Rfam assigns this 64-nucleotide sequence from Clupea harengus to the family "Selenocysteine insertion sequence 1". It scores 41 bits against the family's covariance model. The family's consensus secondary structure is taken from published work. Rfam classes the family as a cis-regulatory element. Taxonomically the source falls in Clupea (Eukaryota, Clupeocephala, Clupeoidei, Clupeinae).

[Rfam]
RNA sequence: GCCAGCUAAUGAUGACUUGCUCGAAAACCCAAACCGGGCAGAGCAAGUCUGAUGUCAACCUGGU
Numbered sequence: 001g002c003c004a005g006c007u008a009a010u011g012a013u014g015a016c017u018u019g020c021u022c023g024a025a026a027a028c029c030c031a032a033a034c035c036g037g038g039c040a041g042a043g044c045a046a047g048u049c050u051g052a053u054g055u056c057a058a059c060c061u062g063g064u
Stems, first nucleotide, its partner, number of pairs: 001064005014049009028038003